[Rfam]
Rfam assigns this 130-nucleotide RNA from Muntiacus reevesi to the family "Small nucleolar RNA SNORA42/SNORA80 family". A reference for the family is Schattner et al. (2006), "A computational screen for mammalian pseudouridylation guide H/ACA RNAs", RNA. The match comes from Rfam's covariance-model search (81 bits). The organism belongs to Muntiacus, within Eukaryota.
RNA sequence: GCCUGGGUUUGGAUUCCUGGCAGGCCCGUCCCCCUGGGUCUCAUAGUGUCUCAUGCCAGAGAACUCUGGCCCCGGACCAUUGCCCGGCCUCUGCCCGUCGACUGCAGGCACUGAAGUGGGGUAAACUGGC
Numbered sequence: 001g002c003c004u005g006g007g008u009u010u011g012g013a014u015u016c017c018u019g020g021c022a023g024g025c026c027c028g029u030c031c032c033c034c035u036g037g038g039u040c041u042c043a044u045a046g047u048g049u050c051u052c053a054u055g056c057c058a059g060a061g062a063a064c065u066c067u068g069g070c071c072c073c074g075g076a077c078c079a080u081u082g083c084c085c086g087g088c089c090u091c092u093g094c095c096c097g098u099c100g101a102c103u104g105c106a107g108g109c110a111c112u113g114a115a116g117u118g119g120g121g122u123a124a125a126c127u128g129g130c
Base pairs, nucleotide, nucleotide: 001056002055004053005051006050007049008048015046018043022041023040024039025037026036067123068122070120071119072118078113079112083108084107085104086103087102089100